Notes: Rfam assigns this 85-nucleotide sequence from Anguilla anguilla to the family "mir-363 microRNA precursor family". It scores 76 bits against the family's covariance model. Rfam 15.1 lists 620 matches to the family in 594 species. NCBI's taxonomy places the organism under Eukaryota, Deuterostomia, Craniata, Vertebrata, Anguilla. Its family is annotated with miRNA-mediated post-transcriptional gene silencing and RISC complex in the Gene Ontology. Its Rfam clan is "mir-19 clan". On this family, see Yue et al., BMC Genomics 2008: "Identification of novel homologous microRNA genes in the rhesus macaque genome". The family's consensus secondary structure was predicted with RNAalifold.

RNA sequence: GCUGUUUCCGGGUGGAUGACUUUGCAAUUUUAAUGAAUCGUGAAAACCUCCAAAAAAAUUGCACGGUAUCCAUCUGUAAUCCGCC
Numbered sequence: 001g002c003u004g005u006u007u008c009c010g011g012g013u014g015g016a017u018g019a020c021u022u023u024g025c026a027a028u029u030u031u032a033a034u035g036a037a038u039c040g041u042g043a044a045a046a047c048c049u050c051c052a053a054a055a056a057a058a059u060u061g062c063a064c065g066g067u068a069u070c071c072a073u074c075u076g077u078a079a080u081c082c083g084c085c
Stems, first nucleotide, its partner, number of pairs: 009076009019067002023063009